A member of the RNA family "epsC RNA" from Neobacillus vireti, 114 nucleotides long.
The base pairs follow the family's consensus structure, which is taken from published work.
The organism belongs to Neobacillus vireti, within Bacteria.
[Rfam]
RNA sequence: CGGCGAGGCUUCCCUGUCCGUUAUACAUGGGGGCACUCGAUCAUGCUGUGGGGCCAUUUCGGUCCUUAGGCGCAGGUCGUCAAAUGGAUGAUGUGAGGCUGGGUUAGAUGCCCA
Dot-bracket structure: [[[....((((((....]]]........)))))).(((((((((.(...((((((.....))))))..((((.....))))....).))))).))))..(((((.....)))))